[Rfam]
RNA sequence: GCGGGAGUAGCUCAGUUGGUAGAGCAUCGGCUUCCCAAGCCGAGGGUCGCGGGUUCGAGUCCCGUCUCCCGCU
Dot-bracket structure: (((((((..((((........)))).(((((.......))))).....(((((.......)))))))))))).
Numbered sequence: 001g002c003g004g005g006a007g008u009a010g011c012u013c014a015g016u017u018g019g020u021a022g023a024g025c026a027u028c029g030g031c032u033u034c035c036c037a038a039g040c041c042g043a044g045g046g047u048c049g050c051g052g053g054u055u056c057g058a059g060u061c062c063c064g065u066c067u068c069c070c071g072c073u
Stems, first nucleotide, its partner, number of pairs: 001072007010025004027043005049065005
Shown here is a 73-nucleotide RNA sequence from Thermus thermophilus, a member of the family "tRNA". Rfam classes the family as a transfer RNA. The sequence is in the family's curated seed alignment. Rfam describes the family as follows. Transfer RNA (tRNA) molecules are approximately 80 nucleotides in length.